[Rfam]
RNA: Plant signal recognition particle RNA
RNA sequence: ACUGGGCCUUGUAACGUGGGCCUGUAACCCAAGUGGGAGCAAUAAGGUGAUAGAACAUUAGGCCCAUUUGGAUGGUUAUUGGGCUUUGUUUAAUGCUAGUCUUGCCCCUAUCCAAGCAUUGAGUUGGGCCUUGUUGUUGUGUCCAUGCGACGGCAUGGACGCCGUGCCCUCUCCUCAAAAAGGAGGGCACGGUGUCAGGCUGGUUUCACGGAGCAGCGAUAUUGUCCUUCUUUGUGUAGUGGAAGGAUGCCAGGCUGGCGCUUUCACGGCCCCUAGCUUGUCGAGAUGGGUACUCCUAAUUGGACCUUCACCUUU
Numbered sequence: 001a002c003u004g005g006g007c008c009u010u011g012u013a014a015c016g017u018g019g020g021c022c023u024g025u026a027a028c029c030c031a032a033g034u035g036g037g038a039g040c041a042a043u044a045a046g047g048u049g050a051u052a053g054a055a056c057a058u059u060a061g062g063c064c065c066a067u068u069u070g071g072a073u074g075g076u077u078a079u080u081g082g083g084c085u086u087u088g089u090u091u092a093a094u095g096c097u098a099g100u101c102u103u104g105c106c107c108c109u110a111u112c113c114a115a116g117c118a119u120u121g122a123g124u125u126g127g128g129c130c131u132u133g134u135u136g137u138u139g140u141g142u143c144c145a146u147g148c149g150a151c152g153g154c155a156u157g158g159a160c161g162c163c164g165u166g167c168c169c170u171c172u173c174c175u176c177a178a179a180a181a182g183g184a185g186g187g188c189a190c191g192g193u194g195u196c197a198g199g200c201u202g203g204u205u206u207c208a209c210g211g212a213g214c215a216g217c218g219a220u221a222u223u224g225u226c227c228u229u230c231u232u233u234g235u236g237u238a239g240u241g242g243a244a245g246g247a248u249g250c251c252a253g254g255c256u257g258g259c260g261c262u263u264u265c266a267c268g269g270c271c272c273c274u275a276g277c278u279u280g281u282c283g284a285g286a287u288g289g290g291u292a293c294u295c296c297u298a299a300u301u302g303g304a305c306c307u308u309c310a311c312c313u314u315u
Stems, first nucleotide, its partner, number of pairs: 002039002004023006028037003044314007053305001056302002058299003061295002064289006071282003074272002077269001080266002083264001088261001090260001096258007104251001107246002111243004116237004121232003126170003130166001132164002139162010172179001181228004186223002191220001193218003200211003